The family of this 69-nucleotide RNA sequence from Bombyx mori is "mir-3389 microRNA precursor family".
NCBI's taxonomy places the organism under Eukaryota, Dicondylia, Neoptera, Neolepidoptera, Bombyx.
The match comes from Rfam's covariance-model search (75 bits).
Its family is annotated with RISC complex and miRNA-mediated post-transcriptional gene silencing in the Gene Ontology.
[Rfam]
RNA sequence: CCAGUCGUAGCCGAUGUUCCACAAGAGAGGGCAAAGGACUGACUCCUGUGGAACACUGCACUCGAUGGG
Dot-bracket structure: ...(((((.((.(.((((((...(.((.(((..(.....)..))))).)))))))).))))..)))...
Numbered sequence: 001c002c003a004g005u006c007g008u009a010g011c012c013g014a015u016g017u018u019c020c021a022c023a024a025g026a027g028a029g030g031g032c033a034a035a036g037g038a039c040u041g042a043c044u045c046c047u048g049u050g051g052a053a054c055a056c057u058g059c060a061c062u063c064g065a066u067g068g069g
Stems, first nucleotide, its partner, number of pairs: 004066003007061002010059002013056001015055006024049001026047002029045003034040001